The record is a 69-nucleotide RNA from Phyllostomus discolor, which matches "Small nucleolar RNA SNORD56" in Rfam.
Nucleotides: 069
Base pairs, nucleotide, nucleotide: 002068003067004066008027009026010025011024
Number, partner (000 for none) and nucleotide at each position: 001000c002068u003067a004066c005000a006000a007000u008027g009026a010025u011024g012000g013000u014000a015000a016000c017000a018000u019000u020000u021000u022000u023000u024011u025010g026009u027008c028000a029000a030000c031000a032000g033000u034000u035000c036000a037000c038000c039000u040000a041000g042000u043000g044000a045000g046000u047000g048000u049000u050000g051000a052000g053000a054000c055000u056000u057000u058000g059000g060000g061000u062000c063000u064000g065000a066004g067003u068002g069000g
Its family is annotated with nucleolus and RNA processing in the Gene Ontology. The match comes from Rfam's covariance-model search (78 bits). Pairs were carried over by alignment from the consensus structure, which was predicted with PFOLD. For this family Rfam cites "Purified box C/D snoRNPs are able to reproduce site-specific 2'-O-methylation of target RNA in vitro" (Galardi et al., Mol Cell Biol, 2002).